This 88-nucleotide RNA sequence from Medicago truncatula belongs to the Rfam family "MIR2617 microRNA precursor family".
[Rfam]
Nucleotides: 088
Stems, first nucleotide, its partner, number of pairs: 002088001004086003007082008016074006
Number, partner (000 for none) and nucleotide at each position: 001000a002088a003000g004086c005085a006084g007082u008081g009080u010079g011078a012077c013076a014075u015000g016074c017073u018072c019071g020070u021069u022000g023000u024000u025000g026000u027000u028000a029000a030000a031000c032000u033000c034000u035000g036000a037000u038000u039000a040000u041000u042000u043000u044000a045000u046000u047000u048000a049000u050000u051000a052000u053000u054000u055000a056000a057000u058000a059000g060000u061000u062000u063000u064000g065000g066000g067000a068000u069021a070020a071019c072018g073017g074016g075014g076013u077012g078011u079010u080009a081008c082007a083000a084006u085005u086004g087000g088002u
The source organism's lineage runs through Eukaryota, Streptophytina, eudicotyledons, Gunneridae and Medicago.